RNA sequence: ACGCGGAAAGGAGGUGGUCCAAACAAUGGUUGAUCAUUAUUGGGCUAGCGAGGUGGCUGUCCGCUAGGACUCGCCGACUCCGGACCACGUCCGGACGUCUGGCGACGUCCGGCGAAUCCACGACACCACCGGAACCCCGGGCUGCCGGAGGGCGGGCUUUCCCCCCGUCCAUUGGUCCAUCCGGCCCGCCUCACCCUGAGGCGGAGCAGGCCCGGGGUUCUUUUCUG
Numbered sequence: 001a002c003g004c005g006g007a008a009a010g011g012a013g014g015u016g017g018u019c020c021a022a023a024c025a026a027u028g029g030u031u032g033a034u035c036a037u038u039a040u041u042g043g044g045c046u047a048g049c050g051a052g053g054u055g056g057c058u059g060u061c062c063g064c065u066a067g068g069a070c071u072c073g074c075c076g077a078c079u080c081c082g083g084a085c086c087a088c089g090u091c092c093g094g095a096c097g098u099c100u101g102g103c104g105a106c107g108u109c110c111g112g113c114g115a116a117u118c119c120a121c122g123a124c125a126c127c128a129c130c131g132g133a134a135c136c137c138c139g140g141g142c143u144g145c146c147g148g149a150g151g152g153c154g155g156g157c158u159u160u161c162c163c164c165c166c167g168u169c170c171a172u173u174g175g176u177c178c179a180u181c182c183g184g185c186c187c188g189c190c191u192c193a194c195c196c197u198g199a200g201g202c203g204g205a206g207c208a209g210g211c212c213c214g215g216g217g218u219u220c221u222u223u224u225c226u227g
Stems, first nucleotide, its partner, number of pairs: 013061006062114004067109002071105004076099003131221013147202001
Shown here is a 227-nucleotide RNA sequence from Thermocatellispora tengchongensis, a member of the family "Actinobacteria sRNA Ms_IGR-5". Rfam classes the family as a small RNA. The pairing is the family consensus, mapped onto this sequence. NCBI's taxonomy places the organism under Bacteria, Actinomycetota, Actinomycetes, Streptosporangiaceae, Thermocatellispora.